This 88-nucleotide sequence from Klebsiella sp. RIT-PI-d belongs to the Rfam family "TrxA 5' UTR thermometer". The base pairs follow the family's consensus structure. Rfam describes the family as follows. Involved in protection against oxidative stress. Its family is annotated with response to temperature stimulus and regulation of translation in the Gene Ontology.
RNA sequence: CAACAGUUGCUGUUUAAUGCUACACCAACAUGCCAGGCCUAUUCCUGUGGAGUUAAAUAUGAGCGAUAAAAUUAUUCACCUGACUGAC
Numbered sequence: 001c002a003a004c005a006g007u008u009g010c011u012g013u014u015u016a017a018u019g020c021u022a023c024a025c026c027a028a029c030a031u032g033c034c035a036g037g038c039c040u041a042u043u044c045c046u047g048u049g050g051a052g053u054u055a056a057a058u059a060u061g062a063g064c065g066a067u068a069a070a071a072u073u074a075u076u077c078a079c080c081u082g083a084c085u086g087a088c
Base pairs, nucleotide, nucleotide: 008068009067011065012064014062015061016060022053023052025050026049027048032045072087073086074085076083077082